Rfam assigns this 83-nucleotide RNA from Triplophysa rosa to the family "mir-128 microRNA precursor family". It scores 69 bits against the family's covariance model. Rfam links the family to the GO terms miRNA-mediated post-transcriptional gene silencing and RISC complex. Taxonomically the source falls in Triplophysa (Eukaryota, Bilateria, Vertebrata, Neopterygii). The family's consensus secondary structure was predicted with RNAalifold.
RNA sequence: CAGUAGUAGGAGAGGGAGCCGUUACACUGUAAGAGAUGGUGCUAGUGGUCUCACAGUGAAGCGGUCUCUUCUUCUGCUAUUCA
Numbered sequence: 001c002a003g004u005a006g007u008a009g010g011a012g013a014g015g016g017a018g019c020c021g022u023u024a025c026a027c028u029g030u031a032a033g034a035g036a037u038g039g040u041g042c043u044a045g046u047g048g049u050c051u052c053a054c055a056g057u058g059a060a061g062c063g064g065u066c067u068c069u070u071c072u073u074c075u076g077c078u079a080u081u082c083a
Stems, first nucleotide, its partner, number of pairs: 006077005015068002018065004025058006033052003